[Rfam]
RNA sequence: GUGGCGGUGUAGUCCCAGGUGGCGUCGGCGUCGAGGAGGGCGUUCUCGCCGAAGCGCUCGCCGUCGGCGAGUACGGCCACGGCCACCUCGUCGCCGUACUUGCCGACGGAGGUCUGGCUGAUGCGGCCGUGGGCGAUGAGGUGGAUCUGGUCGGCGGGGGUGCCGCGUUCGACGAGGACCUCGCCGGCCCGGAAGUCGCGCUGGACGCAGCGGUCGGCGAUGGCGGUCAGGACCUGGACGUCGUCGAAGCCGCGCAGCAGGGCGAGUUCGCCGAGCUCCUGGGGGAUCACGCGGACGCUGGCGCCGUCCUGGACGAACUCGAUGGUGCCGUCGCCGACGGUGUAGCUCAGGCGGCGGUUGACCCGGUAGGUGCCGCCCUUGGUCUCCACCCAGGGGAGCAUCCGCAGCAGCCACCGGGAGGUGAUCUCCUGCAUCUGCGGGGCGGACUUGGUGGUGGUGGCAAGGUUGCGGGCGGCGGCCGUGCUGAGGCUCUGCUGCUGGGGAGGUUCCU
Dot-bracket structure: .....((((.((.((..(......((((..((.....(((......(((((..(..((.((((((..(......(.(.(((((.........)))))....))....)..).......(..(....(..((..((..(.(..(......(...((...(((.(..(((...)))..).....))).)).).....)).)..))..)..)..)....)..)..))))).))..).(....((.(((....(((.(.(((.(.(......).)...)))).)))..))).))....)...)))))....)))....))..)))).....)((((......))))........(.(((((...(((.....))).))))).).)).)).))))(((((((.(((.(.(.(.......)).)..))).))))))).....((.(..((.((((.((.......)).))).).))..).))((.(.(.(((((......))..))).).)...)).
RNA: Saccharopolyspora sRNA 350
Organism: Streptomyces sp. Ag109_G2-6